[Rfam]
Description
Rfam assigns this 111-nucleotide RNA from Hufsiella arboris to the family "SAM riboswitch aptamer (S box leader)". From the family's description: The SAM riboswitch is found upstream of a number of genes which code for proteins involved in methionine or cysteine biosynthesis in Gram-positive bacteria. The SAM riboswitch acts at the level of transcription termination control. Its family is annotated with regulation of gene expression in the Gene Ontology.
RNA sequence: GAUUUAUAAAGAAGUGGCGAGAGACAGGCUCUAUGACCCACUGGCAACCCUGAAGUCUGACUUCAGAAGGUGCCAAUUCCUUUCCCGGAAUUUUUAGGGAAGCUAUAAAUU
Number, nucleotide and partner (000 for none) at each position: 001g111002a110003u109004u108005u107006a106007u105008a104009a000010a000011g000012a000013a042014g041015u040016g039017g038018c000019g000020a000021g031022a030023g029024a000025c000026a081027g080028g079029c023030u022031c021032u000033a000034u000035g000036a000037c000038c017039c016040a015041c014042u013043g074044g073045c072046a071047a000048c070049c069050c066051u065052g064053a063054a000055g000056u000057c000058u000059g000060a000061c000062u000063u053064c052065a051066g050067a000068a000069g049070g048071u046072g045073c044074c043075a000076a000077u000078u000079c028080c027081u026082u000083u100084c099085c098086c097087g000088g095089a000090a000091u000092u000093u000094u000095u088096a000097g086098g085099g084100a083101a000102g000103c000104u008105a007106u006107a005108a004109a003110u002111u001